Notes
The family of this 99-nucleotide RNA from Brevundimonas variabilis is "Glycine riboswitch aptamer". Its family is annotated with glycine biosynthetic process in the Gene Ontology.

[Rfam]
RNA sequence: CGCUGGAAAGCAGCCCGAAAGGGCUCGCCGAAGGAGCAAGACGCGCAGGGCCGGCAACGGCGCGUGGGCGUUGGAAUCUCUCAGGCCACAAGGACAGCG
Dot-bracket structure: (((((......((((......)))).(((((..(((....(..............................).....))))).)))........)))))